[Rfam]
RNA sequence: GAGGUAAGAUGAAAAGAAAAUACCAUCUAAACUUUUCUGAAGACUGUCAGUUCCCCUCAGAGAUGCA
Number, nucleotide and partner (000 for none) at each position: 001g058002a057003g056004g055005u000006a000007a000008g000009a000010u000011g000012a000013a000014a000015a000016g000017a000018a000019a000020a000021u000022a000023c000024c000025a000026u000027c000028u000029a000030a000031a000032c000033u000034u000035u000036u000037c000038u000039g000040a000041a000042g000043a000044c000045u000046g000047u000048c000049a000050g000051u000052u000053c000054c000055c004056c003057u002058c001059a000060g000061a000062g000063a000064u000065g000066c000067a000
The record is a 67-nucleotide RNA from Sinocyclocheilus rhinocerous, which matches "Small nucleolar RNA SNORD19" in Rfam. Rfam 15.1 lists 1,431 matches to the family in 609 species. The match comes from Rfam's covariance-model search (38 bits). Rfam classes the family as a C/D-box small nucleolar RNA. The pairing is the family consensus, mapped onto this sequence. The family is grouped with related families in Rfam's "SNORD19 clan".